[Rfam]
RNA sequence: GGAUAAAGAUGAGGAAAGUAAUCAUUGGUGAUGGUUAAUUCCACUUGAUCAAGAUUUCUUUUUGUUUUCGCUACGUUCUUUCUGAUUUAUCC
Numbered sequence: 001g002g003a004u005a006a007a008g009a010u011g012a013g014g015a016a017a018g019u020a021a022u023c024a025u026u027g028g029u030g031a032u033g034g035u036u037a038a039u040u041c042c043a044c045u046u047g048a049u050c051a052a053g054a055u056u057u058c059u060u061u062u063u064g065u066u067u068u069c070g071c072u073a074c075g076u077u078c079u080u081u082c083u084g085a086u087u088u089a090u091c092c
Base pairs, nucleotide, nucleotide: 004089005088006087007086
RNA: Small nucleolar RNA R32/R81/Z41